Shown here is a 120-nucleotide sequence from Paracoccus sp. J56, a member of the family "Alphaproteobacterial ar14". From the family's description: Smr14C2 was renamed NfeR1 (Nodule Formation Efficiency RNA) highly expressed in salt stress and during the symbiotic interaction on legume roots. The base pairs follow the family's consensus structure. It is annotated as a small RNA. The source organism's lineage runs through Bacteria, Pseudomonadati, Alphaproteobacteria, Rhodobacterales and Paracoccus.
[Rfam]
RNA sequence: AGUUUGCGACGGUCCUUCUCCUCCUCCCUGGGAUCGUCAGCACGCGGUAAUGGCCUCCUCCUCCCUGCCAUUGCCGCACCCUAUGCGCGGCCCCUCCUCCUCCCUGGGCCAGCGUUACGC
Dot-bracket structure: .......(.(((((((.............))))))).)......((((((((((............))))))))))........(((((((((............))))).)))).....